A member of the RNA family "mir-184 microRNA precursor family" from Plutella xylostella, 81 nucleotides long. Its family is annotated with RISC complex and gene silencing by miRNA in the Gene Ontology. The base pairs follow the family's consensus structure, which was predicted with PFOLD.
RNA sequence: GUAUUGACGGGCCCUUGUCAUUUCUUUGGCCCUGUGUGCCUUAUACUACUGGACGGAGAACUGAUAAGGGCUUGUCUUGCA
Numbered sequence: 001g002u003a004u005u006g007a008c009g010g011g012c013c014c015u016u017g018u019c020a021u022u023u024c025u026u027u028g029g030c031c032c033u034g035u036g037u038g039c040c041u042u043a044u045a046c047u048a049c050u051g052g053a054c055g056g057a058g059a060a061c062u063g064a065u066a067a068g069g070g071c072u073u074g075u076c077u078u079g080c081a
Base pairs, nucleotide, nucleotide: 012070013069014068015067016066017065018064019063020062022060023059024058025057026056027055030052031051